[Rfam]
Nucleotides: 084
Stems, first nucleotide, its partner, number of pairs: 001084003005080003
Number, partner (000 for none) and nucleotide at each position: 001084g002083g003082c004000c005080a006079g007078g008000a009000a010000g011000a012000a013000a014000g015000a016000a017000a018000a019000a020000a021000u022000a023000u024000a025000a026000a027000u028000u029000a030000a031000a032000a033000c034000a035000u036000c037000u038000a039000g040000u041000a042000u043000a044000g045000g046000c047000a048000a049000g050000c051000a052000a053000a054000g055000a056000g057000c058000u059000g060000g061000a062000c063000a064000g065000a066000u067000u068000u069000g070000c071000a072000c073000u074000u075000a076000a077000c078007c079006c080005u081000a082003g083002c084001c

A member of the RNA family "HIV gag stem loop 3 (GSL3)" from Lentivirus humimdef1, 84 nucleotides long.
Rfam describes the family as follows. This family consists of several HIV gag stem loop 3 (GSL3) sequences. GSL3 is known to direct specific packaging of HIV-1 genomic RNA. Deletion of GSL3 leads to decreases in both viral RNA packaging and dimerisation.
On this family, see Damgaard et al., J Mol Biol 2004: "RNA interactions in the 5' region of the HIV-1 genome".
Rfam's curators put it in the seed alignment.